[Rfam]
RNA: FMN riboswitch aptamer (RFN element)
Organism: Loigolactobacillus bifermentans
RNA sequence: AAUUGUCUUCAGAGGCAGGGUGAAAUUCCCGACCGGUGGUUAAAGUCCAUGACCCACAUAGGGUGGUUGAAGCGGUGUAAUUCCGCUACCGAUAGUUAAAGUCUAGACGAAAGGAGAUAGGG
Numbered sequence: 001a002a003u004u005g006u007c008u009u010c011a012g013a014g015g016c017a018g019g020g021u022g023a024a025a026u027u028c029c030c031g032a033c034c035g036g037u038g039g040u041u042a043a044a045g046u047c048c049a050u051g052a053c054c055c056a057c058a059u060a061g062g063g064u065g066g067u068u069g070a071a072g073c074g075g076u077g078u079a080a081u082u083c084c085g086c087u088a089c090c091g092a093u094a095g096u097u098a099a100a101g102u103c104u105a106g107a108c109g110a111a112a113g114g115a116g117a118u119a120g121g122g
Stems, first nucleotide, its partner, number of pairs: 003120008018030003032102002034091002036050004045089002054066002071087005093105003